The family of this 53-nucleotide RNA from Gillisella ampelina is "sul1 RNA".
RNA sequence: AUCGGACUCGUUUUGACGAGUGGCUUCUCCGGGCGCCUAUCCCCCGGCCACAG
Numbered sequence: 001a002u003c004g005g006a007c008u009c010g011u012u013u014u015g016a017c018g019a020g021u022g023g024c025u026u027c028u029c030c031g032g033g034c035g036c037c038u039a040u041c042c043c044c045c046g047g048c049c050a051c052a053g
Stems, first nucleotide, its partner, number of pairs: 006021006029047005
Pairs were carried over by alignment from the consensus structure, which is taken from published work. It is one of the family's seed sequences.